[Rfam]
RNA sequence: GAAGCGGUAUCGUAAAGCCUGGUGACCUUGGCCACUCGGAGAGUGGACCUAGCUGGUGCUGAGAUGCACCGGGACAGACUGAAAUCGAGGCCCAGGGUGAGCCGCUUU
Numbered sequence: 001g002a003a004g005c006g007g008u009a010u011c012g013u014a015a016a017g018c019c020u021g022g023u024g025a026c027c028u029u030g031g032c033c034a035c036u037c038g039g040a041g042a043g044u045g046g047a048c049c050u051a052g053c054u055g056g057u058g059c060u061g062a063g064a065u066g067c068a069c070c071g072g073g074a075c076a077g078a079c080u081g082a083a084a085u086c087g088a089g090g091c092c093c094a095g096g097g098u099g100a101g102c103c104g105c106u107u108u
Stems, first nucleotide, its partner, number of pairs: 001108007010100003018096005026090003033045005053072007
RNA: DUF3800-III RNA